[Rfam]
RNA sequence: GGACGGUGAAGAUUACACUUUAGGUCUCGUUCGUCGUAACGGCGAUUUGCGCCUUGACGACCACACUGUUAUAUCACCACCCAUAUUCAGAGUCU
Numbered sequence: 001g002g003a004c005g006g007u008g009a010a011g012a013u014u015a016c017a018c019u020u021u022a023g024g025u026c027u028c029g030u031u032c033g034u035c036g037u038a039a040c041g042g043c044g045a046u047u048u049g050c051g052c053c054u055u056g057a058c059g060a061c062c063a064c065a066c067u068g069u070u071a072u073a074u075c076a077c078c079a080c081c082c083a084u085a086u087u088c089a090g091a092g093u094c095u
Base pairs, nucleotide, nucleotide: 001095002094003093004092044055045054
RNA: Small nucleolar RNA Z43